[Rfam]
This 81-nucleotide RNA from Megalops atlanticus belongs to the Rfam family "mir-26 microRNA precursor family".
Taxonomically the source falls in Megalops (Eukaryota, Metazoa, Actinopteri, Elopocephala).
Pairs were carried over by alignment from the consensus structure, which was predicted with RNAalifold.
Rfam links the family to the GO terms RISC complex and miRNA-mediated post-transcriptional gene silencing.
A reference for the family is Lagos-Quintana et al. (2001), "Identification of novel genes coding for small expressed RNAs", Science.
RNA sequence: CUGUGACCUGGUUCAAGUAAUCCAGGAUAGGCUGUUUGUAUCUAAGUUGGCCUAUUCACGAUUACUUGCUCUAGGGGGCAG
Numbered sequence: 001c002u003g004u005g006a007c008c009u010g011g012u013u014c015a016a017g018u019a020a021u022c023c024a025g026g027a028u029a030g031g032c033u034g035u036u037u038g039u040a041u042c043u044a045a046g047u048u049g050g051c052c053u054a055u056u057c058a059c060g061a062u063u064a065c066u067u068g069c070u071c072u073a074g075g076g077g078g079c080a081g
Base pairs, nucleotide, nucleotide: 002080003079004078007075008074009073010072011071014068015067016066017065018064019063020062021061022060025057026056027055028054029053030052031051032050033049